[Rfam]
RNA sequence: UAGGGGAGUCGGGGUUCGGACCCCCUCCCCGAGCCCAGGGUAACGUUAACUGUGGAGGGGAU
Numbered sequence: 001u002a003g004g005g006g007a008g009u010c011g012g013g014g015u016u017c018g019g020a021c022c023c024c025c026u027c028c029c030c031g032a033g034c035c036c037a038g039g040g041u042a043a044c045g046u047u048a049a050c051u052g053u054g055g056a057g058g059g060g061a062u
Base pairs, nucleotide, nucleotide: 008041009040010039012036013035014034015033016031018029019028022060023059024058025057026056027055
About this RNA
This 62-nucleotide RNA sequence from Phascolarctos cinereus belongs to the Rfam family "Gag/pol translational readthrough site". A reference for the family is ten Dam et al. (1990), "RNA pseudoknots: translational frameshifting and readthrough on viral RNAs", Virus Genes. Rfam 15.1 lists 3,368 matches to the family in 94 species.